Notes:
Rfam assigns this 94-nucleotide sequence to the family "PhotoRC-II RNA".
RNA sequence: UUAUCAAUAUUUGCUCCCGCUAACCAAGACCUAUGGGAGGAUAAAUUACGUCUUUUUAUCCAGUAGUGAGGGAUUACUGGAAAUAAGUUUCGCU
Numbered sequence: 001u002u003a004u005c006a007a008u009a010u011u012u013g014c015u016c017c018c019g020c021u022a023a024c025c026a027a028g029a030c031c032u033a034u035g036g037g038a039g040g041a042u043a044a045a046u047u048a049c050g051u052c053u054u055u056u057u058a059u060c061c062a063g064u065a066g067u068g069a070g071g072g073a074u075u076a077c078u079g080g081a082a083a084u085a086a087g088u089u090u091c092g093c094u
Stems, first nucleotide, its partner, number of pairs: 014039006026054005059081007
It is annotated as a cis-regulatory element. The family's consensus secondary structure is taken from published work.